[Rfam]
RNA sequence: GGACGGUGAAGAUUCCGCAGUGAAAGGUCUCGUUCGUCGUAACUGGCUAAGGAAUUAGCCUUGCCGACCAUCCUGUUAUAUCACCACCCAUAUUCUGAGUCC
Dot-bracket structure: ((((............................................((..........))....................................))))
Overview
The record is a 102-nucleotide RNA sequence from Citrus unshiu, which matches "Small nucleolar RNA Z43" in Rfam. A search with the family's covariance model found it, with a score of 93 bits. It is annotated as a C/D-box small nucleolar RNA. On this family, see Chen et al., Nucleic Acids Res 2003: "The high diversity of snoRNAs in plants: identification and comparative study of 120 snoRNA genes from Oryza sativa". Taxonomically the source falls in Citrus (Eukaryota, Euphyllophyta, Spermatophyta, Aurantioideae).